Shown here is a 73-nucleotide RNA from Pseudomonas mangrovi, a member of the family "narK RNA". The match comes from Rfam's covariance-model search (48 bits). By type it is a cis-regulatory element.
[Rfam]
RNA sequence: GGCACAUCGCUUGCUUCAAGCCGAACAUGGAAAGCGUUCCAACGGCGGAGCGCUUCAUCGACAAUGGCGUCGC
Numbered sequence: 001g002g003c004a005c006a007u008c009g010c011u012u013g014c015u016u017c018a019a020g021c022c023g024a025a026c027a028u029g030g031a032a033a034g035c036g037u038u039c040c041a042a043c044g045g046c047g048g049a050g051c052g053c054u055u056c057a058u059c060g061a062c063a064a065u066g067g068c069g070u071c072g073c
Base pairs, nucleotide, nucleotide: 034053035052036051037050038049039048040047